[Rfam]
RNA sequence: GGAGUCGGCCGGACAGUCGCGUCGCGCGCAAGCGCAUCGAGGAAAGUCCGGGCUCCAUAGGGCAGGGUGCCAGGUAACGCCUGGGCAGCGCGAGCUGACGGCCAGUGCAACAGAAAGCAAACCGCCGAUGGCCGGGCAUUUCUUCGGAAUGUCGGGCACAGGUAAGGGUGAAACGGUGCGGUAAGAGCGCACCGCGCGCGGGGACAACGUCGCGUGGCACGGUAAACCCCACCCGGAGCAAGACCGAAUAGGGGAACGAUAACGCGGCCCGCGUUGUUCCCGGGUAGGUUGCUGGAGCCAGACGGUGACGUCUGGCCGAGAGGAAUGACUGUCGCGCCGCAAGGCGUACAGAACCCGGCUUACAGGCCGACUCCGCCU
Numbered sequence: 001g002g003a004g005u006c007g008g009c010c011g012g013a014c015a016g017u018c019g020c021g022u023c024g025c026g027c028g029c030a031a032g033c034g035c036a037u038c039g040a041g042g043a044a045a046g047u048c049c050g051g052g053c054u055c056c057a058u059a060g061g062g063c064a065g066g067g068u069g070c071c072a073g074g075u076a077a078c079g080c081c082u083g084g085g086c087a088g089c090g091c092g093a094g095c096u097g098a099c100g101g102c103c104a105g106u107g108c109a110a111c112a113g114a115a116a117g118c119a120a121a122c123c124g125c126c127g128a129u130g131g132c133c134g135g136g137c138a139u140u141u142c143u144u145c146g147g148a149a150u151g152u153c154g155g156g157c158a159c160a161g162g163u164a165a166g167g168g169u170g171a172a173a174c175g176g177u178g179c180g181g182u183a184a185g186a187g188c189g190c191a192c193c194g195c196g197c198g199c200g201g202g203g204a205c206a207a208c209g210u211c212g213c214g215u216g217g218c219a220c221g222g223u224a225a226a227c228c229c230c231a232c233c234c235g236g237a238g239c240a241a242g243a244c245c246g247a248a249u250a251g252g253g254g255a256a257c258g259a260u261a262a263c264g265c266g267g268c269c270c271g272c273g274u275u276g277u278u279c280c281c282g283g284g285u286a287g288g289u290u291g292c293u294g295g296a297g298c299c300a301g302a303c304g305g306u307g308a309c310g311u312c313u314g315g316c317c318g319a320g321a322g323g324a325a326u327g328a329c330u331g332u333c334g335c336g337c338c339g340c341a342a343g344g345c346g347u348a349c350a351g352a353a354c355c356c357g358g359c360u361u362a363c364a365g366g367c368c369g370a371c372u373c374c375g376c377c378u
Base pairs, nucleotide, nucleotide: 001374002373003372004371005370006369007368008367009366010365011363012333013332014331015330016329017328018327020039021038024035025034026033027032044361045360046359048358049357050356051355052354053238054237055236056235060270061269062268063267065234066233067232068231069230070084071083072082073081074080085099086097087096088095089094100229101228105227106226107223108222122167123166124163125162126161129158130157132155133154134153135152175193176192177191178190179189180188194218195216196215197214198213199212200210203208242290243289244288245287252281253280254279255278256277257276261275262274263273264272265271297316298315299314300313301312302311303310304309

Description:
A member of the RNA family "Bacterial RNase P class A" from Dyella dinghuensis, 378 nucleotides long. A search with the family's covariance model found it, with a score of 311 bits. The family's RNA type in Rfam is ribozyme.